[Rfam]
RNA sequence: CUUUGUAUUCUUCCACAGCUUUCUUGAACUGCACCUAUUUGGAUCGAUAUUGUUGUUGAUGUUGCCGUGCAUGCCAUGGCCAUGUAUAUAUGAGAUUGCAUUUUUGUUGCGGUUCAAUAAAGCUGUGGGAAGAUACGAACA
Numbered sequence: 001c002u003u004u005g006u007a008u009u010c011u012u013c014c015a016c017a018g019c020u021u022u023c024u025u026g027a028a029c030u031g032c033a034c035c036u037a038u039u040u041g042g043a044u045c046g047a048u049a050u051u052g053u054u055g056u057u058g059a060u061g062u063u064g065c066c067g068u069g070c071a072u073g074c075c076a077u078g079g080c081c082a083u084g085u086a087u088a089u090a091u092g093a094g095a096u097u098g099c100a101u102u103u104u105u106g107u108u109g110c111g112g113u114u115c116a117a118u119a120a121a122g123c124u125g126u127g128g129g130a131a132g133a134u135a136c137g138a139a140c141a
Base pairs, nucleotide, nucleotide: 003138004137005136006135007134013128014127015126017124018123019122020121021120022119024117025116026115027114029112030111031110032109033108
Dot-bracket structure: ..(((((.....(((.((((((.((((.(((((..........................................................................))))).)))).)))))).))).....)))))...